The family of this 143-nucleotide RNA from Vigna radiata is "Small nucleolar RNA snoR136". Taxonomically the source falls in Vigna radiata (Eukaryota, Spermatophyta, Magnoliopsida, Gunneridae). Rfam 15.1 lists 452 matches to the family in 212 species. Rfam classes the family as an H/ACA-box small nucleolar RNA.
RNA sequence: AAGGCUUCAGCUUUGAUAGAGAAUUUUGCUUGCACGUUUUCCAAUGUGUUUGGCUAUCUUUAUCUGAAGCCGAGAUGUGCGUUCCCCUCGCUAUCCAAUGUUGCAAUUUUGAUGCUGCAAUUGGACGUCGGGGAACAAAAUCC
Numbered sequence: 001a002a003g004g005c006u007u008c009a010g011c012u013u014u015g016a017u018a019g020a021g022a023a024u025u026u027u028g029c030u031u032g033c034a035c036g037u038u039u040u041c042c043a044a045u046g047u048g049u050u051u052g053g054c055u056a057u058c059u060u061u062a063u064c065u066g067a068a069g070c071c072g073a074g075a076u077g078u079g080c081g082u083u084c085c086c087c088u089c090g091c092u093a094u095c096c097a098a099u100g101u102u103g104c105a106a107u108u109u110u111g112a113u114g115c116u117g118c119a120a121u122u123g124g125a126c127g128u129c130g131g132g133g134a135a136c137a138a139a140a141u142c143c
Stems, first nucleotide, its partner, number of pairs: 003071003008066003016061001018059002026056001028054003032050001034049003081136007089127002094125005103115003